[Rfam]
RNA sequence: GUUCCCUGUGAUGUUAAUUUUAACCAUGCUAAUGCUGAUAAUCAAUACAUGAUUAUAGUUAAUAUCCUUAUAUACUGAGGGAACU
Numbered sequence: 001g002u003u004c005c006c007u008g009u010g011a012u013g014u015u016a017a018u019u020u021u022a023a024c025c026a027u028g029c030u031a032a033u034g035c036u037g038a039u040a041a042u043c044a045a046u047a048c049a050u051g052a053u054u055a056u057a058g059u060u061a062a063u064a065u066c067c068u069u070a071u072a073u074a075c076u077g078a079g080g081g082a083a084c085u
Stems, first nucleotide, its partner, number of pairs: 001084007
RNA: Small nucleolar RNA snoR53Y
Organism: Trifolium subterraneum